[Rfam]
RNA: Alphaproteobacteria transfer-messenger RNA
Organism: Alteraurantiacibacter buctensis
RNA sequence: ACACUUCCAAUUCAGGAUCGGUCGCCUAUAUGGGUCCUGCCGGUUUCGGCCGGCUAUGGCGAUAAAUUGCGGUGUGCAAUAGGCACAGCGGACCCGGGGGCAGUACCCGGCGGCUCCACCAUCACCACCCGGUGCACGCACCGGGGCCCUGUUGUCGCAGGGGUGUUGACGGGGCCGAACCAGGAUCGACGUGUGUUGAAAAGCACUGUUUUCGCCCGGGCUGAGUAACCCGUUAAAGGCUCAAAACACACAAGUGCCAACGACAACGAAGCACUCGCUCUUGCCGCGUAACAUGACGGCCUAACGGCCAGACGUUACAAAGCUUAAGCGCGGUUGGACCGACCGGGCAACAGAACGGAUUCCG
Numbered sequence: 001a002c003a004c005u006u007c008c009a010a011u012u013c014a015g016g017a018u019c020g021g022u023c024g025c026c027u028a029u030a031u032g033g034g035u036c037c038u039g040c041c042g043g044u045u046u047c048g049g050c051c052g053g054c055u056a057u058g059g060c061g062a063u064a065a066a067u068u069g070c071g072g073u074g075u076g077c078a079a080u081a082g083g084c085a086c087a088g089c090g091g092a093c094c095c096g097g098g099g100g101c102a103g104u105a106c107c108c109g110g111c112g113g114c115u116c117c118a119c120c121a122u123c124a125c126c127a128c129c130c131g132g133u134g135c136a137c138g139c140a141c142c143g144g145g146g147c148c149c150u151g152u153u154g155u156c157g158c159a160g161g162g163g164u165g166u167u168g169a170c171g172g173g174g175c176c177g178a179a180c181c182a183g184g185a186u187c188g189a190c191g192u193g194u195g196u197u198g199a200a201a202a203g204c205a206c207u208g209u210u211u212u213c214g215c216c217c218g219g220g221c222u223g224a225g226u227a228a229c230c231c232g233u234u235a236a237a238g239g240c241u242c243a244a245a246a247c248a249c250a251c252a253a254g255u256g257c258c259a260a261c262g263a264c265a266a267c268g269a270a271g272c273a274c275u276c277g278c279u280c281u282u283g284c285c286g287c288g289u290a291a292c293a294u295g296a297c298g299g300c301c302u303a304a305c306g307g308c309c310a311g312a313c314g315u316u317a318c319a320a321a322g323c324u325u326a327a328g329c330g331c332g333g334u335u336g337g338a339c340c341g342a343c344c345g346g347g348c349a350a351c352a353g354a355a356c357g358g359a360u361u362c363c364g
Stems, first nucleotide, its partner, number of pairs: 039054005058216005069209007084195003088192003094110005111177007217232004222243003331345004336363003